The family of this 57-nucleotide sequence from Rhodococcus rhodnii is "F6 TB sRNA". For this family Rfam cites "Identification of small RNAs in Mycobacterium tuberculosis" (Arnvig and Young, Mol Microbiol, 2009). Pairs were carried over by alignment from the consensus structure, which is taken from published work.
RNA sequence: GGGACAGCCUCGCGUUGCUGUCCGACCCCCGACCUGGCAGCAACGCGGGGCUCCUUC
Numbered sequence: 001g002g003g004a005c006a007g008c009c010u011c012g013c014g015u016u017g018c019u020g021u022c023c024g025a026c027c028c029c030c031g032a033c034c035u036g037g038c039a040g041c042a043a044c045g046c047g048g049g050g051c052u053c054c055u056u057c
Stems, first nucleotide, its partner, number of pairs: 002056002007051016